tRNA: a 118-nucleotide sequence from a Thermoplasmatota archaeon.
A search with the family's covariance model found it, with a score of 59 bits.
The family's consensus secondary structure is taken from published work.
Lineage of the source: Archaea > Methanobacteriati > Thermoplasmatota.

RNA sequence: GUCGGGGUGGCUCAGCUUGGUCAGAGCGCCUGACUCAUAAGCUCAGCUCAAAGGUUCGUUUGAAGCGUGGUUGCGCUAAGAUAUCAGGAGGCCGCGGGUUCAACUCCCGCCCCCGACA
Numbered sequence: 001g002u003c004g005g006g007g008u009g010g011c012u013c014a015g016c017u018u019g020g021u022c023a024g025a026g027c028g029c030c031u032g033a034c035u036c037a038u039a040a041g042c043u044c045a046g047c048u049c050a051a052a053g054g055u056u057c058g059u060u061u062g063a064a065g066c067g068u069g070g071u072u073g074c075g076c077u078a079a080g081a082u083a084u085c086a087g088g089a090g091g092c093c094g095c096g097g098g099u100u101c102a103a104c105u106c107c108c109g110c111c112c113c114c115g116a117c118a
Stems, first nucleotide, its partner, number of pairs: 001117007010027004029088005094110005